[Rfam]
A member of the RNA family "Vault RNA" from Podarcis lilfordi, 97 nucleotides long. The family's RNA type in Rfam is non-coding RNA gene.
Nucleotides: 097
Stems, first nucleotide, its partner, number of pairs: 002094006012083004017079002020076001026072004
Number, partner (000 for none) and nucleotide at each position: 001000g002094a003093g004092c005091c006090a007089g008000c009000u010000c011000a012083g013082c014081c015080c016000a017079g018078c019000g020076g021000u022000u023000c024000c025000a026072u027071c028070g029069a030000c031000c032000a033000a034000a035000g036000c037000a038000u039000u040000a041000g042000u043000u044000a045000g046000a047000u048000c049000u050000c051000c052000u053000a054000c055000u056000c057000u058000c059000c060000u061000c062000c063000a064000g065000u066000g067000g068000u069029u070028u071027g072026a073000c074000a075000c076020c077000a078018g079017c080015g081014g082013g083012c084000g085000c086000u087000g088000c089007c090006u091005g092004g093003c094002u095000u096000u097000a

Pairs were carried over by alignment from the consensus structure, which is taken from published work.
The family has 73 seed sequences and 2,873 matches in Rfam 15.1.